[Rfam]
RNA sequence: UUUGCCCGGGAUCGCCCUCCGUCAGCGCGUUGCGCCCACGGGGGCCAACCGG
Numbered sequence: 001u002u003u004g005c006c007c008g009g010g011a012u013c014g015c016c017c018u019c020c021g022u023c024a025g026c027g028c029g030u031u032g033c034g035c036c037c038a039c040g041g042g043g044g045c046c047a048a049c050c051g052g
Stems, first nucleotide, its partner, number of pairs: 016044007025035004
RNA: ffh sRNA